[Rfam]
The family of this 238-nucleotide RNA sequence from Clostridium ljungdahlii is "Group II catalytic intron D1-D4-6". Rfam 15.1 lists 1,617 matches to the family in 661 species. It scores 105 bits against the family's covariance model. Pairs were carried over by alignment from the consensus structure.
RNA sequence: AAAUAGCAGUCAACAUAAAGCUUAGCCAACAGUGUUGUACCGAGUCUUGUGUUGUUUAUAGUAAUAUAAGCUGUGAAGCAUAGACAGGAAAAUUGUAGGUCAGAAUAAAGUGAAAGGAAAAAUUAAGUCCCGAUAUUGAACCAAAUAUGUGGAAUAGCCGACUUUUUCUCUAUGAGGAAGGCAGAAAUCAAAAUUCGUUUUCGCGGGAAUGUUUAAUUGUUCCCGUGAUUCGUACCCA
Numbered sequence: 001a002a003a004u005a006g007c008a009g010u011c012a013a014c015a016u017a018a019a020g021c022u023u024a025g026c027c028a029a030c031a032g033u034g035u036u037g038u039a040c041c042g043a044g045u046c047u048u049g050u051g052u053u054g055u056u057u058a059u060a061g062u063a064a065u066a067u068a069a070g071c072u073g074u075g076a077a078g079c080a081u082a083g084a085c086a087g088g089a090a091a092a093u094u095g096u097a098g099g100u101c102a103g104a105a106u107a108a109a110g111u112g113a114a115a116g117g118a119a120a121a122a123u124u125a126a127g128u129c130c131c132g133a134u135a136u137u138g139a140a141c142c143a144a145a146u147a148u149g150u151g152g153a154a155u156a157g158c159c160g161a162c163u164u165u166u167u168c169u170c171u172a173u174g175a176g177g178a179a180g181g182c183a184g185a186a187a188u189c190a191a192a193a194u195u196c197g198u199u200u201u202c203g204c205g206g207g208a209a210u211g212u213u214u215a216a217u218u219g220u221u222c223c224c225g226u227g228a229u230u231c232g233u234a235c236c237c238a
Stems, first nucleotide, its partner, number of pairs: 012036005020030001022028001023206001025204002038090001040088002044085004048080002050075003054071007124232001125230001127229003131225002151223006157182003162176003187217002190214002193210004